This 248-nucleotide part of an RNA from Candidatus Haloredivivus sp. G17 belongs to the Rfam family "Archaeal large subunit ribosomal RNA". It is one of the family's seed sequences.
[Rfam]
RNA sequence: UGUGGUCUGAGAGGAAAGUCCGGACAGUACGAAAGGAACCCCGGACUGAGGCCUCUGGUGUAUCUGUCAUCCGGAAGGGUGUUGCAGAGUAGCUACGCCUCGCAGAUGUAAGAGCUGAAAGCAUCUAAGCUCGAAAGUCUCCUCAAAAAGAGACCGCGUCCGCGCCCAUACAAGAUGGGUUGAUAGAGUGGCGGUGUAAGAUCCAAGGCAACGAGGAUUUCAGCCUACCACUACUAAGAGCGAAUCUC
Numbered sequence: 001u002g003u004g005g006u007c008u009g010a011g012a013g014g015a016a017a018g019u020c021c022g023g024a025c026a027g028u029a030c031g032a033a034a035g036g037a038a039c040c041c042c043g044g045a046c047u048g049a050g051g052c053c054u055c056u057g058g059u060g061u062a063u064c065u066g067u068c069a070u071c072c073g074g075a076a077g078g079g080u081g082u083u084g085c086a087g088a089g090u091a092g093c094u095a096c097g098c099c100u101c102g103c104a105g106a107u108g109u110a111a112g113a114g115c116u117g118a119a120a121g122c123a124u125c126u127a128a129g130c131u132c133g134a135a136a137g138u139c140u141c142c143u144c145a146a147a148a149a150g151a152g153a154c155c156g157c158g159u160c161c162g163c164g165c166c167c168a169u170a171c172a173a174g175a176u177g178g179g180u181u182g183a184u185a186g187a188g189u190g191g192c193g194g195u196g197u198a199a200g201a202u203c204c205a206a207g208g209c210a211a212c213g214a215g216g217a218u219u220u221c222a223g224c225c226u227a228c229c230a231c232u233a234c235u236a237a238g239a240g241c242g243a244a245u246c247u248c
Stems, first nucleotide, its partner, number of pairs: 001158008011144004017047007048101005056095003063088005068081005105139003112132005161242003165179004184236003187232005193225002200219005207212001